Record summary
mir-203 microRNA precursor family: an 80-nucleotide RNA from Sarcophilus harrisii. Rfam 15.1 lists 1,049 matches to the family in 464 species.

[Rfam]
RNA sequence: CCUGCCCUGAUAGAGUGGUCCUAAACAUUUCACAAUUUUUUAAUAGAACUGUUGAACUGUUAAGAACCACUGCACCAGGG
Number, nucleotide and partner (000 for none) at each position: 001c000002c000003u000004g000005c000006c000007c000008u000009g000010a000011u000012a000013g000014a071015g070016u069017g068018g067019u066020c000021c064022u063023a000024a061025a060026c059027a058028u000029u056030u055031c054032a053033c000034a000035a000036u000037u000038u000039u000040u000041u000042a000043a000044u000045a000046g000047a000048a000049c000050u000051g000052u000053u032054g031055a030056a029057c000058u027059g026060u025061u024062a000063a022064g021065a000066a019067c018068c017069a016070c015071u014072g000073c000074a000075c000076c000077a000078g000079g000080g000
Notes
A search with the family's covariance model found it, with a score of 66 bits. A reference for the family is Lim et al. (2003), "Vertebrate microRNA genes", Science.